[Rfam]
Annotation
pan motif: an 87-nucleotide sequence from Planifilum fulgidum. It is annotated as a cis-regulatory element. The match comes from Rfam's covariance-model search (51 bits). Taxonomically the source falls in Planifilum (Bacteria, Bacillati, Bacilli, Caryophanales).

RNA sequence: AAGGCGGCAUCCGCGCGGAGCCGCACUGACGGAUUUUCACUCAAUUGAAAAGAUUCUGCUUCGAGCCCGAGGGACGGAGACAGAGGA
Numbered sequence: 001a002a003g004g005c006g007g008c009a010u011c012c013g014c015g016c017g018g019a020g021c022c023g024c025a026c027u028g029a030c031g032g033a034u035u036u037u038c039a040c041u042c043a044a045u046u047g048a049a050a051a052g053a054u055u056c057u058g059c060u061u062c063g064a065g066c067c068c069g070a071g072g073g074a075c076g077g078a079g080a081c082a083g084a085g086g087a
Stems, first nucleotide, its partner, number of pairs: 002027002004024005010019002056083003059079005066073002